[Rfam]
RNA sequence: AACAAUUUGUCCCGCGUCCCGAGGCGUUUUAAAAAAAAUCCCCAUAUUUUUUUUAAAACGCCGCGGGACGCGGGACAAAUUGUUAG
Numbered sequence: 001a002a003c004a005a006u007u008u009g010u011c012c013c014g015c016g017u018c019c020c021g022a023g024g025c026g027u028u029u030u031a032a033a034a035a036a037a038a039u040c041c042c043c044a045u046a047u048u049u050u051u052u053u054u055a056a057a058a059c060g061c062c063g064c065g066g067g068a069c070g071c072g073g074g075a076c077a078a079a080u081u082g083u084u085a086g
Stems, first nucleotide, its partner, number of pairs: 001084021023062013